Rfam assigns this 179-nucleotide RNA from Pestalotiopsis fici to the family "Small nucleolar RNA snR32". It is annotated as an H/ACA-box small nucleolar RNA. A reference for the family is Balakin et al. (1993), "SnR31, snR32, and snR33: three novel, non-essential snRNAs from Saccharomyces cerevisiae", Nucleic Acids Res. Taxonomically the source falls in Pestalotiopsis fici (Eukaryota, Fungi, Sordariomycetes, Xylariomycetidae).
RNA sequence: CACAUCAUUUACAUGCCAUGUUACGCUUCGGCGUAAUCUACUAUUCGCAGCAUUUCUCUGUUGCUGCGAGUAUUUUCAACAUGGCAAAGAUUAAACUAUGGACACGUUGCUGGGCGCCCGAAUUCAAGACAUCGUUUUGAAUGUCUAGGAGAUUUCGGGAAUCAGUAGAGGUUACAUUU
Numbered sequence: 001c002a003c004a005u006c007a008u009u010u011a012c013a014u015g016c017c018a019u020g021u022u023a024c025g026c027u028u029c030g031g032c033g034u035a036a037u038c039u040a041c042u043a044u045u046c047g048c049a050g051c052a053u054u055u056c057u058c059u060g061u062u063g064c065u066g067c068g069a070g071u072a073u074u075u076u077c078a079a080c081a082u083g084g085c086a087a088a089g090a091u092u093a094a095a096c097u098a099u100g101g102a103c104a105c106g107u108u109g110c111u112g113g114g115c116g117c118c119c120g121a122a123u124u125c126a127a128g129a130c131a132u133c134g135u136u137u138u139g140a141a142u143g144u145c146u147a148g149g150a151g152a153u154u155u156c157g158g159g160a161a162u163c164a165g166u167a168g169a170g171g172u173u174a175c176a177u178u179u
Stems, first nucleotide, its partner, number of pairs: 015085008030041001043071005049065003102172002105168001117159002121155002124152002128145005